[Rfam]
RNA sequence: UGGGUCGGCAAGGCGAUCGCGAUGGAAACAUCGAGGAACGUCCGGGCUCCAAAGAGCAAAACGGUGGCUAAUUACCACCCGGGGUAACCCGCGAGAAAGUGCAACAGAAAGUAAACCGCCGAGAGAUCGGUAAGGGUGAAACGGUGGUGUAAGAGACCACCAGUGUGGCGUGUGAGCGCCACAGCUAGGUAAACCUCGUUUGGAGCAAGGUCAGAUAGGGAACGCAUAGAGCUGCUCGCUCUUGUUCUCGGGUAGGCCGCUUGAGGGUGUUGGUAACAGCACUUCUAGAUAGAUGAUCGUCGCCUGGCAACAGGUACAGAACCCGGCGUAACAGCCGGCCCGUCCA
Dot-bracket structure: (((((((((..(((((((.(((((....)))))....[[[.[[[[[((((...[[[[.(((((((((.......))))(((((....)))).)((...((((.............(((((((....)))))..)).......((((((.......)))))).(((((((((....)))))))).)...))..)))))))))))))...((((.....((((((....(((((.]]]]))))).)))))).....))))......((((((((....))))))))..........)))))))....................]]]]]]]]....)))))))))....
Numbered sequence: 001u002g003g004g005u006c007g008g009c010a011a012g013g014c015g016a017u018c019g020c021g022a023u024g025g026a027a028a029c030a031u032c033g034a035g036g037a038a039c040g041u042c043c044g045g046g047c048u049c050c051a052a053a054g055a056g057c058a059a060a061a062c063g064g065u066g067g068c069u070a071a072u073u074a075c076c077a078c079c080c081g082g083g084g085u086a087a088c089c090c091g092c093g094a095g096a097a098a099g100u101g102c103a104a105c106a107g108a109a110a111g112u113a114a115a116c117c118g119c120c121g122a123g124a125g126a127u128c129g130g131u132a133a134g135g136g137u138g139a140a141a142c143g144g145u146g147g148u149g150u151a152a153g154a155g156a157c158c159a160c161c162a163g164u165g166u167g168g169c170g171u172g173u174g175a176g177c178g179c180c181a182c183a184g185c186u187a188g189g190u191a192a193a194c195c196u197c198g199u200u201u202g203g204a205g206c207a208a209g210g211u212c213a214g215a216u217a218g219g220g221a222a223c224g225c226a227u228a229g230a231g232c233u234g235c236u237c238g239c240u241c242u243u244g245u246u247c248u249c250g251g252g253u254a255g256g257c258c259g260c261u262u263g264a265g266g267g268u269g270u271u272g273g274u275a276a277c278a279g280c281a282c283u284u285c286u287a288g289a290u291a292g293a294u295g296a297u298c299g300u301c302g303c304c305u306g307g308c309a310a311c312a313g314g315u316a317c318a319g320a321a322c323c324c325g326g327c328g329u330a331a332c333a334g335c336c337g338g339c340c341c342g343u344c345c346a
Stems, first nucleotide, its partner, number of pairs: 001342009012301007020033005038329003042326005047205004054237004059201005064078004079093001080091004094196002099194002101190002116135002118131005143161006163185001164183008209258004218249006228242005265284008